The record is a 129-nucleotide sequence from Aeromonas hydrophila, which matches "Histidine operon leader" in Rfam. A reference for the family is Kolter and Yanofsky (1982), "Attenuation in amino acid biosynthetic operons", Annu Rev Genet. At least 6 amino acid operons are known to be regulated by attenuation. In each a leader sequence of 150-200 bp is found upstream of the first gene in the operon. This leader sequence can assume two different secondary structures known as the terminator and the anti-terminator structure. In each case the leader also codes for very short peptide sequence that is rich in the end product amino acid of the operon. The terminator structure is recognised as a termination signal for RNA polymerase and the operon is not transcribed. This structure forms when the cell has an excess of the regulatory amino acid and ribosome movement over the leader transcript is not impeded. When there is a deficiency of the charged tRNA of the regulatory amino acid the ribosome translating the leader peptide stalls and the antiterminator structure can form. This allows RNA polymerase to transcribe the operon. In the Rfam alignment the consensus structure is of the terminator structure. It scores 81 bits against the family's covariance model. NCBI's taxonomy places the organism under Bacteria, Pseudomonadati, Aeromonadales, Aeromonadaceae, Aeromonas hydrophila subsp. hydrophila. Pairs were carried over by alignment from the consensus structure, which is taken from published work.
RNA sequence: UCACCACCAUCAUCAUCCCGAAUAGUCUUUCAGGAGGUUGACUGCUGGAAGACACUUAACUGGUGACUUCCAAAAGGACCGCAAGAUUCAUAAGCCCUCGGAAGCACUGACUUCCGAGGGCUUUUUCGU
Numbered sequence: 001u002c003a004c005c006a007c008c009a010u011c012a013u014c015a016u017c018c019c020g021a022a023u024a025g026u027c028u029u030u031c032a033g034g035a036g037g038u039u040g041a042c043u044g045c046u047g048g049a050a051g052a053c054a055c056u057u058a059a060c061u062g063g064u065g066a067c068u069u070c071c072a073a074a075a076g077g078a079c080c081g082c083a084a085g086a087u088u089c090a091u092a093a094g095c096c097c098u099c100g101g102a103a104g105c106a107c108u109g110a111c112u113u114c115c116g117a118g119g120g121c122u123u124u125u126u127c128g129u
Stems, first nucleotide, its partner, number of pairs: 008044002011040002014037001017034002020031002046072006090125001092123013